[Rfam]
RNA sequence: GCUCCCCUUACAGCAAUUCAAAGUAAAUUCAUUUCAGAACAAACCCUUGGGAACUG
Numbered sequence: 001g002c003u004c005c006c007c008u009u010a011c012a013g014c015a016a017u018u019c020a021a022a023g024u025a026a027a028u029u030c031a032u033u034u035c036a037g038a039a040c041a042a043a044c045c046c047u048u049g050g051g052a053a054c055u056g
Stems, first nucleotide, its partner, number of pairs: 001054001003052004

Class I RNA from Dictyostelium: a 56-nucleotide RNA from Polysphondylium violaceum. A reference for the family is Avesson et al. (2011), "Abundant class of non-coding RNA regulates development in the social amoeba Dictyostelium discoideum", RNA Biol. NCBI's taxonomy places the organism under Eukaryota, Amoebozoa, Eumycetozoa, Dictyosteliaceae, Polysphondylium.